[Rfam]
RNA: Enterobacteria greA leader
Organism: Pectobacterium carotovorum
RNA sequence: GUCAUACUACGGCGCAACAAGGGCUAAAGUAAACGAUGACCCUCAUUGAACUCUGGGGUAAAAUACGUAUCAAAAUGCAAAACCGCUGCUAGCCUGGAAAUUUUGUUCCGGGGCUGGUUGCU
Number, nucleotide and partner (000 for none) at each position: 001g040002u039003c038004a037005u036006a000007c000008u000009a000010c035011g034012g000013c000014g030015c029016a000017a000018c000019a000020a000021g000022g000023g000024c000025u000026a000027a000028a000029g015030u014031a000032a000033a000034c011035g010036a005037u004038g003039a002040c001041c048042c000043u000044c000045a000046u000047u000048g041049a000050a000051c000052u000053c000054u000055g000056g000057g071058g070059u069060a068061a000062a000063a000064u000065a000066c000067g000068u060069a059070u058071c057072a000073a000074a000075a000076u000077g000078c000079a000080a000081a000082a000083c000084c000085g000086c000087u000088g000089c117090u116091a115092g114093c113094c112095u110096g109097g108098a107099a000100a000101u000102u000103u000104u000105g000106u000107u098108c097109c096110g095111g000112g094113g093114c092115u091116g090117g089118u000119u000120g000121c000122u000